A member of the RNA family "small nucleolar RNA snoR143" from Actinidia chinensis, 159 nucleotides long.

[Rfam]
RNA sequence: UUGCACUUGUAUCAUAGGCCUCUCUAAUUGUGGUAGUGUGGUCUGAGCCAAGUGCAUAAAAUGAAAGCUGUUGAAUCAGCAGCAGCCAGACAACUGCAGAGAUGGAUCCACUGGUGAAUGGCUAAUAUGCUACUUACCUACUGAUUCCAUCUCACAUUU
Numbered sequence: 001u002u003g004c005a006c007u008u009g010u011a012u013c014a015u016a017g018g019c020c021u022c023u024c025u026a027a028u029u030g031u032g033g034u035a036g037u038g039u040g041g042u043c044u045g046a047g048c049c050a051a052g053u054g055c056a057u058a059a060a061a062u063g064a065a066a067g068c069u070g071u072u073g074a075a076u077c078a079g080c081a082g083c084a085g086c087c088a089g090a091c092a093a094c095u096g097c098a099g100a101g102a103u104g105g106a107u108c109c110a111c112u113g114g115u116g117a118a119u120g121g122c123u124a125a126u127a128u129g130c131u132a133c134u135u136a137c138c139u140a141c142u143g144a145u146u147c148c149a150u151c152u153c154a155c156a157u158u159u
Stems, first nucleotide, its partner, number of pairs: 002056005009048002012046002016044005022038001024036003099153008117135002119132003
Notes: The family's RNA type in Rfam is H/ACA-box small nucleolar RNA. The family's consensus secondary structure was predicted with RNAalifold.